A member of the RNA family "Plant signal recognition particle RNA" from Solanum lycopersicum, 274 nucleotides long. The organism belongs to Solanum subgen. Lycopersicon, within Eukaryota. Clan: SRP clan. Pairs were carried over by alignment from the consensus structure, which is taken from published work. The family's RNA type in Rfam is non-coding RNA gene.
[Rfam]
RNA sequence: CAAGUGGGGAUGUUAAGGUGGUGGAAUAUUGGGCUGUCCCAGAUGGCUGGGCUUGGUGGGCUAAUUUCUGGCCUGCCCUGUCCAAGCACAGAGUUGGAUCACGAGGCCCAAAUGAAAAUAUGGGCUUCUUGAUUCCUAAAGUGGGGCGGACCGCAUGAGGCUGGCUUCACAGAGCAGUGAACAGCUCCCGCUCUGUGCAGUGGAAGGAUAAUGGGUCGGUGUCUUAUCAAGUUCAGUAACGCCUAAUGGGUUGCUCCAAUAAACAACCACCUUU
Numbered sequence: 001c002a003a004g005u006g007g008g009g010a011u012g013u014u015a016a017g018g019u020g021g022u023g024g025a026a027u028a029u030u031g032g033g034c035u036g037u038c039c040c041a042g043a044u045g046g047c048u049g050g051g052c053u054u055g056g057u058g059g060g061c062u063a064a065u066u067u068c069u070g071g072c073c074u075g076c077c078c079u080g081u082c083c084a085a086g087c088a089c090a091g092a093g094u095u096g097g098a099u100c101a102c103g104a105g106g107c108c109c110a111a112a113u114g115a116a117a118a119u120a121u122g123g124g125c126u127u128c129u130u131g132a133u134u135c136c137u138a139a140a141g142u143g144g145g146g147c148g149g150a151c152c153g154c155a156u157g158a159g160g161c162u163g164g165c166u167u168c169a170c171a172g173a174g175c176a177g178u179g180a181a182c183a184g185c186u187c188c189c190g191c192u193c194u195g196u197g198c199a200g201u202g203g204a205a206g207g208a209u210a211a212u213g214g215g216u217c218g219g220u221g222u223c224u225u226a227u228c229a230a231g232u233u234c235a236g237u238a239a240c241g242c243c244u245a246a247u248g249g250g251u252u253g254c255u256c257c258a259a260u261a262a263a264c265a266a267c268c269a270c271c272u273u274u
Stems, first nucleotide, its partner, number of pairs: 001006001015273008024264001027261005032255003036251002039249003045243003049234008058225003062221002068219008077207002081204004086198009096135006103128008112119002136141001143188005154179003161172003